Rfam assigns this 77-nucleotide RNA sequence from Bombyx mori to the family "mir-2797 microRNA precursor family".
[Rfam]
RNA sequence: UGUUGUGAUCAUAAGUAGGUUUUAUUCGACUUUGUUCUAUAUUCAAGUCGCGUGAAUCCUACUUUUGAUGACUGCGA
Numbered sequence: 001u002g003u004u005g006u007g008a009u010c011a012u013a014a015g016u017a018g019g020u021u022u023u024a025u026u027c028g029a030c031u032u033u034g035u036u037c038u039a040u041a042u043u044c045a046a047g048u049c050g051c052g053u054g055a056a057u058c059c060u061a062c063u064u065u066u067g068a069u070g071a072c073u074g075c076g077a
Stems, first nucleotide, its partner, number of pairs: 001076003005072002008069004013064007021056005027050005033045002
About this RNA
Rfam 15.1 lists 5 matches to the family in 2 species.